Annotation: The record is an 80-nucleotide sequence from Oryzias melastigma, which matches "mir-19 microRNA precursor family" in Rfam. The base pairs follow the family's consensus structure, which was predicted with RNAalifold. It scores 60 bits against the family's covariance model. NCBI's taxonomy places the organism under Eukaryota, Eumetazoa, Euteleostomi, Ovalentaria, Oryzias. Clan: mir-19 clan. The literature on the family includes a 2002 paper in Genes Dev by Mourelatos et al., "miRNPs: a novel class of ribonucleoproteins containing numerous microRNAs".
[Rfam]
RNA sequence: GUUUACGGUGAGUUUUGUUGGUUUGCUGUCAGCUUCGUUUGGUGUUUGCUGUGCAAAUCCAUGCAAAGCUCUCUGUACCU
Numbered sequence: 001g002u003u004u005a006c007g008g009u010g011a012g013u014u015u016u017g018u019u020g021g022u023u024u025g026c027u028g029u030c031a032g033c034u035u036c037g038u039u040u041g042g043u044g045u046u047u048g049c050u051g052u053g054c055a056a057a058u059c060c061a062u063g064c065a066a067a068g069c070u071c072u073c074u075g076u077a078c079c080u
Stems, first nucleotide, its partner, number of pairs: 004077005010071009020060002022057005031050003